[Rfam]
RNA sequence: ACCGGUAAGUCACACUUAGCCCUGGUGCCUAAGUCUUCGGAUAGGGUGCUUUGGCCGCAACUUUACGUUGCCAGGGUGCAGAAAGAAAUGCCUGCAUCUCCCGAUAUUUGGAAAGGUGUUCUGGUGUCACAAUU
Numbered sequence: 001a002c003c004g005g006u007a008a009g010u011c012a013c014a015c016u017u018a019g020c021c022c023u024g025g026u027g028c029c030u031a032a033g034u035c036u037u038c039g040g041a042u043a044g045g046g047u048g049c050u051u052u053g054g055c056c057g058c059a060a061c062u063u064u065a066c067g068u069u070g071c072c073a074g075g076g077u078g079c080a081g082a083a084a085g086a087a088a089u090g091c092c093u094g095c096a097u098c099u100c101c102c103g104a105u106a107u108u109u110g111g112a113a114a115g116g117u118g119u120u121c122u123g124g125u126g127u128c129a130c131a132a133u134u
Stems, first nucleotide, its partner, number of pairs: 004127001012119005019055003024050006033042003057071005074099008084089001100111002
Shown here is a 134-nucleotide sequence from Erwinia sp. 198, a member of the family "Molybdenum/Tungsten riboswitch aptamer (Moco RNA motif)".